[Rfam]
RNA sequence: AAGCAACACUCUGUGGCAGAUGAUCAAAACCGUCUGUCACAAUUUGCGCUUGCCACAGCAAAAAAAGUCUAACCUAUUCCGGUGUUCUCUCCUCAGUGAGACUAGCCGUUAUAUGGACUUGAACAAU
Numbered sequence: 001a002a003g004c005a006a007c008a009c010u011c012u013g014u015g016g017c018a019g020a021u022g023a024u025c026a027a028a029a030c031c032g033u034c035u036g037u038c039a040c041a042a043u044u045u046g047c048g049c050u051u052g053c054c055a056c057a058g059c060a061a062a063a064a065a066a067g068u069c070u071a072a073c074c075u076a077u078u079c080c081g082g083u084g085u086u087c088u089c090u091c092c093u094c095a096g097u098g099a100g101a102c103u104a105g106c107c108g109u110u111a112u113a114u115g116g117a118c119u120u121g122a123a124c125a126a127u
Stems, first nucleotide, its partner, number of pairs: 009048001011046001012041004017036006065120007075113003080108004088101004
RNA: Small nucleolar RNA SNORA28